[Rfam]
RNA sequence: AGUACUUGUGUCUGUUUUGGUCUAACUUGCAGACUAAAACUUAUGGACAGGUAUGAAAAAUCCUCUUGUGCAACCCAACUCACUGUUCAGUAUGAGUUUUGAUACACACCAGAAGGAAUUUU
Numbered sequence: 001a002g003u004a005c006u007u008g009u010g011u012c013u014g015u016u017u018u019g020g021u022c023u024a025a026c027u028u029g030c031a032g033a034c035u036a037a038a039a040c041u042u043a044u045g046g047a048c049a050g051g052u053a054u055g056a057a058a059a060a061u062c063c064u065c066u067u068g069u070g071c072a073a074c075c076c077a078a079c080u081c082a083c084u085g086u087u088c089a090g091u092a093u094g095a096g097u098u099u100u101g102a103u104a105c106a107c108a109c110c111a112g113a114a115g116g117a118a119u120u121u122u
Stems, first nucleotide, its partner, number of pairs: 002054008011045001014040008060119002063116002066113002070109001076101002078097005